[Rfam]
RNA sequence: AUUGCCUCUCGAAUAACCGGAUGUGGAAUGAUACCCCCACAUACGGUUCAGACAGGGGCAUACACUGACAGAAUCGUUUGAUGGUUGGGAACUGUUAAAAGCAGUCGUUCCUUUCCUAGAUAGAUUCAGAUAUCA
Numbered sequence: 001a002u003u004g005c006c007u008c009u010c011g012a013a014u015a016a017c018c019g020g021a022u023g024u025g026g027a028a029u030g031a032u033a034c035c036c037c038c039a040c041a042u043a044c045g046g047u048u049c050a051g052a053c054a055g056g057g058g059c060a061u062a063c064a065c066u067g068a069c070a071g072a073a074u075c076g077u078u079u080g081a082u083g084g085u086u087g088g089g090a091a092c093u094g095u096u097a098a099a100a101g102c103a104g105u106c107g108u109u110c111c112u113u114u115c116c117u118a119g120a121u122a123g124a125u126u127c128a129g130a131u132a133u134c135a
Base pairs, nucleotide, nucleotide: 003060004059005058006057007056009055015048016047017046018045019044021042022041024039025038026037071127072126073125074124075123077100078099079098082094083093084092085091086090109120110119
RNA: Small nucleolar RNA snoR138